Record summary:
The family of this 216-nucleotide RNA from Selaginella moellendorffii is "Plant small nucleolar RNA U3". Small nucleolar RNAs (snoRNAs) are involved in the processing and modification of rRNA in the nucleolus. There are two main classes of snoRNAs: the box C/D class, and the box H/ACA class. U3 snoRNA is a member of the box C/D class. The family's RNA type in Rfam is C/D-box small nucleolar RNA. Rfam 15.1 lists 3,759 matches to the family in 258 species.
RNA sequence: ACGACUGUACUUGAACAGGAUCUGUUCUCUAGGUCGUACUUCAGUCCAUACCCAGAGGUAUAGACAAACCGAUAUGCCCGGACGAUGAGUCCGAGAGCCCACCGGCUUGAGCGCGACCGUACGGGUGCUUGGUGCUAUUGUGCCAUGCGGCCCAUAGAUGACCGUUCACUCCGAGCUUGCUCGGUUGUGAAGGCCGGGCGGGCAGUCUGACGGGUC
Dot-bracket structure: (((.((......((((((...))))))....))).))......((..(((((....)))))..))..........(((((................((((.(((((((.((((.......(.((((((.((((((....)))))).)).)))).).......)))).((.(((((....)))))..))..)))))))..)))).......))))).